Shown here is a 266-nucleotide RNA from Varanus komodoensis, a member of the family "Small Cajal body specific RNA 6". By type it is a small Cajal body RNA. The literature on the family includes a 2001 paper in EMBO J by Huttenhofer et al., "RNomics: an experimental approach that identifies 201 candidates for novel, small, non-messenger RNAs in mouse". About the family: U88 is small Cajal body specific RNA (scaRNA). scaRNAs are a novel class of small nuclear RNAs which localise to the Cajal bodies. U88 is found associated with both fibrillarin and Gar1p and co-localises with coilin in Cajal bodies.
RNA sequence: GGUCAAUGAUGAACAGUAAAAGGUCUGAUUUGCCCAGUGGUUGCUUCCUUUACCUUUGCAACUCCCAGCAGUUUCUCUUCCAUUAUACUCUAGAAAUGCCAUGAAUGGGAGAGCAUUUGCUGAUAAGUAGUGAUGCAUUCAGCUUGUGUUGCUCUAAAGCACUGGGUAGACACAGCUGAAAUUGUUAUCCAACAAAAACAGUAAAGGAGUUUAAGGUACUGGACCCAUGUCUCUGGUUAUAUGAUCUUAAACGGUUAGCUGAGACC
Numbered sequence: 001g002g003u004c005a006a007u008g009a010u011g012a013a014c015a016g017u018a019a020a021a022g023g024u025c026u027g028a029u030u031u032g033c034c035c036a037g038u039g040g041u042u043g044c045u046u047c048c049u050u051u052a053c054c055u056u057u058g059c060a061a062c063u064c065c066c067a068g069c070a071g072u073u074u075c076u077c078u079u080c081c082a083u084u085a086u087a088c089u090c091u092a093g094a095a096a097u098g099c100c101a102u103g104a105a106u107g108g109g110a111g112a113g114c115a116u117u118u119g120c121u122g123a124u125a126a127g128u129a130g131u132g133a134u135g136c137a138u139u140c141a142g143c144u145u146g147u148g149u150u151g152c153u154c155u156a157a158a159g160c161a162c163u164g165g166g167u168a169g170a171c172a173c174a175g176c177u178g179a180a181a182u183u184g185u186u187a188u189c190c191a192a193c194a195a196a197a198a199c200a201g202u203a204a205a206g207g208a209g210u211u212u213a214a215g216g217u218a219c220u221g222g223a224c225c226c227a228u229g230u231c232u233c234u235g236g237u238u239a240u241a242u243g244a245u246c247u248u249a250a251a252c253g254g255u256u257a258g259c260u261g262a263g264a265c266c
Base pairs, nucleotide, nucleotide: 001266002265003264004263037248039246040245041244042243046223047222048221051218062209063208064207065206066122067121068120069119070118071117079108080107083104084103085102086101088098130190132189133188134187135186136184137183145174146173147172148171149170150168151167152166153165154164